[Rfam]
RNA sequence: AUUUAUUCUAGUUUUGUGUCUUAUGAUGAAGCUUCAUAGGGCAGAUUCUGAGCUGAGAAUUGUAAUCUCUCACCACUGAUAAUCACUAUAUGCAAUCUGAAGACACUACCUAUCUC
Dot-bracket structure: .............(.((((((.........(.(.(((..((..(..((.(.(.((((...........)))).).).)))..)).....))).).)....)))))).)........
A member of the RNA family "Small nucleolar RNA SNORD90" from Chelydra serpentina, 116 nucleotides long. Rfam links the family to the GO terms RNA processing and nucleolus. The source organism's lineage runs through Eukaryota, Tetrapoda, Testudines, Americhelydia and Chelydra. Pairs were carried over by alignment from the consensus structure, which was predicted with RNAalifold. Rfam 15.1 lists 545 matches to the family in 524 species. The literature on the family includes a 2001 paper in EMBO J by Huttenhofer et al., "RNomics: an experimental approach that identifies 201 candidates for novel, small, non-messenger RNAs in mouse".